The record is a 102-nucleotide sequence from Bacillus solimangrovi, which matches "Purine riboswitch aptamer" in Rfam. Rfam links the family to the GO term purine nucleobase biosynthetic process. The match comes from Rfam's covariance-model search (85 bits). The base pairs follow the family's consensus structure, which is taken from published work.
RNA sequence: GAAUUAAAUAAACUACUACUUCGUAUAUUCCGGGGAAUAUGGUCCGGGAGUCUCUACCAAGCAGCCGUAAAUUGCUUGACUACGAGGUUUAAUGGCGGAAUC
Numbered sequence: 001g002a003a004u005u006a007a008a009u010a011a012a013c014u015a016c017u018a019c020u021u022c023g024u025a026u027a028u029u030c031c032g033g034g035g036a037a038u039a040u041g042g043u044c045c046g047g048g049a050g051u052c053u054c055u056a057c058c059a060a061g062c063a064g065c066c067g068u069a070a071a072u073u074g075c076u077u078g079a080c081u082a083c084g085a086g087g088u089u090u091a092a093u094g095g096c097g098g099a100a101u102c
Base pairs, nucleotide, nucleotide: 018088019087020086021085022084023083024082025081029049030048031047033045034044035043058078059077060076061075062074063073064072